This 64-nucleotide RNA sequence from Aliterella atlantica belongs to the Rfam family "Cyanobacterial functional RNA 1".
The source organism's lineage runs through Bacteria, Cyanobacteriota, Chroococcidiopsidales, Aliterellaceae and Aliterella atlantica.
On this family, see Voss et al., BMC Genomics 2007: "A motif-based search in bacterial genomes identifies the ortholog of the small RNA Yfr1 in all lineages of cyanobacteria".
A search with the family's covariance model found it, with a score of 64 bits.
The family's RNA type in Rfam is small RNA.

[Rfam]
RNA sequence: GCGGAGACAAAUGUUUCCGUUCACUCCUCACACCACACUUCGCCCGAAUUACUAUUCGGGCGUU
Numbered sequence: 001g002c003g004g005a006g007a008c009a010a011a012u013g014u015u016u017c018c019g020u021u022c023a024c025u026c027c028u029c030a031c032a033c034c035a036c037a038c039u040u041c042g043c044c045c046g047a048a049u050u051a052c053u054a055u056u057c058g059g060g061c062g063u064u
Base pairs, nucleotide, nucleotide: 001020002019003018004017005016006015007014008013041062042061043060044059045058046057047056